Rfam assigns this 600-nucleotide part of an RNA from Micromonospora inyonensis to the family "Bacterial large subunit ribosomal RNA".
RNA sequence: GGGCGAACGGUGGAUGCCUUGGCACCAGGAGCCGAUGAAGGACGUGGGAGGCCGCGAUAGGCCUGGGGGAGCUGUCAACCAAGCUGUGAUCCCAGGGUGUCCGAAUGGGGAAACCUGGCAUCAGUCAUGUGAUGUCACCUGCACCUGAACACAUAGGGUGUAUGGGGGGAACGCGGGGAAGUGAAACAUCUCAGUACCCGUAGGAAGAGAAAACAAAUAGUGAUUCCGUGAGUAGUGGCGAGCGAAAGCGGAUUGAGGCUAAACCGGCUGCGUGUGAUACCUGUCAGGGGUUGCGUGGUCGGGGUUGUGGGACCCUGCUGAACAUGCUGACACGUGUUCGAGGAGUUAUAAAGUCAGUGGCUAGCCGAACAGUCUGGAAAGGCUGACCGUAGGCGGUGAGAGUCCGGUAGGUGAAAGUUGCUGACCUUCUGUGGGUGUUCCCGAGUAGCGGCGGACUCCUGAAAUCUGCCGUGAAUCUGCCAGGACCACCUGGUAAGCCUAAAUACUUCCUGGUGACCGAUAGCGGACAAGUACCGUGAGGGAAUGGUGAAAAGUACCCCGGGAGGGGAGUGAAAUAGUACCUGAAACCGUUCGCCUACA
Numbered sequence: 001g002g003g004c005g006a007a008c009g010g011u012g013g014a015u016g017c018c019u020u021g022g023c024a025c026c027a028g029g030a031g032c033c034g035a036u037g038a039a040g041g042a043c044g045u046g047g048g049a050g051g052c053c054g055c056g057a058u059a060g061g062c063c064u065g066g067g068g069g070a071g072c073u074g075u076c077a078a079c080c081a082a083g084c085u086g087u088g089a090u091c092c093c094a095g096g097g098u099g100u101c102c103g104a105a106u107g108g109g110g111a112a113a114c115c116u117g118g119c120a121u122c123a124g125u126c127a128u129g130u131g132a133u134g135u136c137a138c139c140u141g142c143a144c145c146u147g148a149a150c151a152c153a154u155a156g157g158g159u160g161u162a163u164g165g166g167g168g169g170a171a172c173g174c175g176g177g178g179a180a181g182u183g184a185a186a187c188a189u190c191u192c193a194g195u196a197c198c199c200g201u202a203g204g205a206a207g208a209g210a211a212a213a214c215a216a217a218u219a220g221u222g223a224u225u226c227c228g229u230g231a232g233u234a235g236u237g238g239c240g241a242g243c244g245a246a247a248g249c250g251g252a253u254u255g256a257g258g259c260u261a262a263a264c265c266g267g268c269u270g271c272g273u274g275u276g277a278u279a280c281c282u283g284u285c286a287g288g289g290g291u292u293g294c295g296u297g298g299u300c301g302g303g304g305u306u307g308u309g310g311g312a313c314c315c316u317g318c319u320g321a322a323c324a325u326g327c328u329g330a331c332a333c334g335u336g337u338u339c340g341a342g343g344a345g346u347u348a349u350a351a352a353g354u355c356a357g358u359g360g361c362u363a364g365c366c367g368a369a370c371a372g373u374c375u376g377g378a379a380a381g382g383c384u385g386a387c388c389g390u391a392g393g394c395g396g397u398g399a400g401a402g403u404c405c406g407g408u409a410g411g412u413g414a415a416a417g418u419u420g421c422u423g424a425c426c427u428u429c430u431g432u433g434g435g436u437g438u439u440c441c442c443g444a445g446u447a448g449c450g451g452c453g454g455a456c457u458c459c460u461g462a463a464a465u466c467u468g469c470c471g472u473g474a475a476u477c478u479g480c481c482a483g484g485a486c487c488a489c490c491u492g493g494u495a496a497g498c499c500u501a502a503a504u505a506c507u508u509c510c511u512g513g514u515g516a517c518c519g520a521u522a523g524c525g526g527a528c529a530a531g532u533a534c535c536g537u538g539a540g541g542g543a544a545u546g547g548u549g550a551a552a553a554g555u556a557c558c559c560c561g562g563g564a565g566g567g568g569a570g571u572g573a574a575a576u577a578g579u580a581c582c583u584g585a586a587a588c589c590g591u592u593c594g595c596c597u598a599c600a
Stems, first nucleotide, its partner, number of pairs: 001597010016582001017547002021518002023515007030507002032168002040102003043056003062096007071084003107116003117136007138165002140162007172203001173201005183190002213221002224503001225252005235243002256500004264302011309442003314435004350428002353425010364412003370385005388392001394406003448472008479494005534541002557568004

On this family, see Yusupov et al., Science 2001: "Crystal structure of the ribosome at 5.5 A resolution". NCBI's taxonomy places the organism under Bacteria, Bacillati, Actinomycetes, Micromonosporales, Micromonospora.